[Rfam]
RNA sequence: GGCCAAGAGAUUCGCCCACACGCCUCCGACGUGGGCGGACGGCAACCGCGCCACCCGGAACGGUGCCCUUCGGAGAAGGCCGGGGCUUGCGGCUAAUGCUGCCGCUGGUCAAGACGGGAGA
Numbered sequence: 001g002g003c004c005a006a007g008a009g010a011u012u013c014g015c016c017c018a019c020a021c022g023c024c025u026c027c028g029a030c031g032u033g034g035g036c037g038g039a040c041g042g043c044a045a046c047c048g049c050g051c052c053a054c055c056c057g058g059a060a061c062g063g064u065g066c067c068c069u070u071c072g073g074a075g076a077a078g079g080c081c082g083g084g085g086c087u088u089g090c091g092g093c094u095a096a097u098g099c100u101g102c103c104g105c106u107g108g109u110c111a112a113g114a115c116g117g118g119a120g121a
Stems, first nucleotide, its partner, number of pairs: 001081004009040001011039006021031002041067003046063003051057001084110004089105005
RNA: SAM (S-adenosyl methionine) riboswitch aptamer